[Rfam]
RNA sequence: GGUCAAUGAUGAGAAGUAAAAGGUCUGAUGCCCAACUCCCCGCUCAGCCGCCCUUUGGCUCCCAGCAGGCCCUGCUCUUUACCCAGCAUGCUCUAGUUGUGCACUGUUGGAUCCAGGGUCUGCUGACAGUCCUGAUGCCUUGUCUAAGCCUGUGACUGCAGGAGGCUCCGCGGUCACAUAUACAAGGCAUCGCACAUCACACCUCCUAAGGAGUGUCAGGGCAGGCUGUGGGGAUAGGCAACUGAUCACCAGUUUUCAAGCUGAGACC
Number, nucleotide and partner (000 for none) at each position: 001g268002g267003u266004c265005a000006a000007u000008g000009a000010u000011g000012a000013g000014a000015a000016g000017u000018a000019a000020a000021a000022g000023g000024u000025c000026u000027g000028a000029u000030g000031c000032c000033c000034a000035a000036c000037u245038c244039c000040c000041c228042g227043c000044u225045c224046a000047g222048c221049c000050g000051c000052c000053c000054u000055u000056u000057g000058g000059c213060u212061c211062c210063c125064a124065g123066c122067a121068g120069g119070c000071c000072c000073u000074g000075c000076u000077c000078u000079u000080u000081a000082c000083c110084c109085a108086g107087c106088a105089u000090g000091c101092u000093c000094u000095a000096g000097u000098u000099g000100u000101g091102c000103a000104c000105u088106g087107u086108u085109g084110g083111a000112u000113c000114c000115a000116g000117g000118g000119u069120c068121u067122g066123c065124u064125g063126a000127c000128a000129g000130u000131c000132c192133u000134g191135a190136u189137g188138c187139c186140u000141u000142g000143u000144c000145u000146a000147a000148g000149c000150c000151u178152g177153u176154g175155a174156c173157u172158g171159c170160a000161g168162g000163a000164g000165g000166c000167u000168c161169c000170g159171c158172g157173g156174u155175c154176a153177c152178a151179u000180a000181u000182a000183c000184a000185a000186g139187g138188c137189a136190u135191c134192g132193c000194a000195c000196a000197u000198c000199a000200c000201a000202c000203c000204u000205c000206c000207u000208a000209a000210g062211g061212a060213g059214u000215g000216u000217c000218a000219g000220g000221g048222c047223a000224g045225g044226c000227u042228g041229u000230g000231g000232g000233g000234a000235u000236a000237g000238g000239c000240a000241a000242c000243u000244g038245a037246u000247c000248a000249c000250c000251a000252g000253u000254u000255u000256u000257c000258a000259a000260g000261c000262u000263g000264a000265g004266a003267c002268c001
Small Cajal body specific RNA 6: a 268-nucleotide sequence from Clupea harengus. A search with the family's covariance model found it, with a score of 118 bits. Rfam describes the family as follows. U88 is small Cajal body specific RNA (scaRNA). scaRNAs are a novel class of small nuclear RNAs which localise to the Cajal bodies. U88 is found associated with both fibrillarin and Gar1p and co-localises with coilin in Cajal bodies. The family has 17 seed sequences and 1,309 matches in Rfam 15.1. By type it is a small Cajal body RNA. On this family, see Huttenhofer et al., EMBO J 2001: "RNomics: an experimental approach that identifies 201 candidates for novel, small, non-messenger RNAs in mouse".